[Rfam]
RNA sequence: AGGCAAUGAUGAUAACUUCUGUGUUCUAGAGGUCGACUAAAGUUUGUCAAUGAAGGAAGCACAAUCCUCUAAGAAGUUCUGAGCUU
Numbered sequence: 001a002g003g004c005a006a007u008g009a010u011g012a013u014a015a016c017u018u019c020u021g022u023g024u025u026c027u028a029g030a031g032g033u034c035g036a037c038u039a040a041a042g043u044u045u046g047u048c049a050a051u052g053a054a055g056g057a058a059g060c061a062c063a064a065u066c067c068u069c070u071a072a073g074a075a076g077u078u079c080u081g082a083g084c085u086u
Base pairs, nucleotide, nucleotide: 001086002085003084004083
RNA: Small nucleolar RNA U61
Organism: Vanilla planifolia